[Rfam]
RNA: S10-Clostridia ribosomal protein leader
Organism: Eubacteriaceae bacterium
RNA sequence: UGUCUGCGAUGAACCAAGAUAUUGCUGUUACUAAUUCAGGUCAUUCUUGGGGAGUAUGUCACGAUCUAUGAAUCGGGCGACGA
Numbered sequence: 001u002g003u004c005u006g007c008g009a010u011g012a013a014c015c016a017a018g019a020u021a022u023u024g025c026u027g028u029u030a031c032u033a034a035u036u037c038a039g040g041u042c043a044u045u046c047u048u049g050g051g052g053a054g055u056a057u058g059u060c061a062c063g064a065u066c067u068a069u070g071a072a073u074c075g076g077g078c079g080a081c082g083a
Base pairs, nucleotide, nucleotide: 014050015049016048018045019044020043025039026038027037057082058081059080060079063078065076066075